[Rfam]
RNA: Small nucleolar RNA SNORD90
RNA sequence: UUUUCAGUAGUUUGUGUCUUAUGAUGAAGCUUCAUAGGGCAGAUUCUGAGCUGAGAAAUGAAAUUUCUCUCCACUGAUACUUGCUGUAUGCCAUCUGAAGACACGGUAUAUUGC
Numbered sequence: 001u002u003u004u005c006a007g008u009a010g011u012u013u014g015u016g017u018c019u020u021a022u023g024a025u026g027a028a029g030c031u032u033c034a035u036a037g038g039g040c041a042g043a044u045u046c047u048g049a050g051c052u053g054a055g056a057a058a059u060g061a062a063a064u065u066u067c068u069c070u071c072c073a074c075u076g077a078u079a080c081u082u083g084c085u086g087u088a089u090g091c092c093a094u095c096u097g098a099a100g101a102c103a104c105g106g107u108a109u110a111u112u113g114c
Stems, first nucleotide, its partner, number of pairs: 012106008029094001033090003038082002042078001045077002048074001050072001053069005